About this RNA: This 172-nucleotide RNA from Paenibacillus agri belongs to the Rfam family "Group II catalytic intron D1-D4-3".
RNA sequence: UCUGCCGCGAGGCAGAAUCUGAAGGAAGCCGGAGGCAAACCCUCGGUCUGACGAACAGAAAUCACAUACAAGGCAGGGUGGGACGGACGAGCUCGCAUGACAAAGCAAAGUCCAAUACUGCCCGAAUCCCAUCCUGUAAAUGUGGCGGAUAGAUGAGGGGAAGGUUAUCGCU
Numbered sequence: 001u002c003u004g005c006c007g008c009g010a011g012g013c014a015g016a017a018u019c020u021g022a023a024g025g026a027a028g029c030c031g032g033a034g035g036c037a038a039a040c041c042c043u044c045g046g047u048c049u050g051a052c053g054a055a056c057a058g059a060a061a062u063c064a065c066a067u068a069c070a071a072g073g074c075a076g077g078g079u080g081g082g083a084c085g086g087a088c089g090a091g092c093u094c095g096c097a098u099g100a101c102a103a104a105g106c107a108a109a110g111u112c113c114a115a116u117a118c119u120g121c122c123c124g125a126a127u128c129c130c131a132u133c134c135u136g137u138a139a140a141u142g143u144g145g146c147g148g149a150u151a152g153a154u155g156a157g158g159g160g161a162a163g164g165u166u167a168u169c170g171c172u
Base pairs, nucleotide, nucleotide: 001016002015003014004013005012006011028172030170031169032168035165036164040159041158042157043156044155045154046150047149048148049147050146062145063144064143065142066141067140073137074136075135077133078132079131080130081129082128083127085113086112087111088110091106092105093104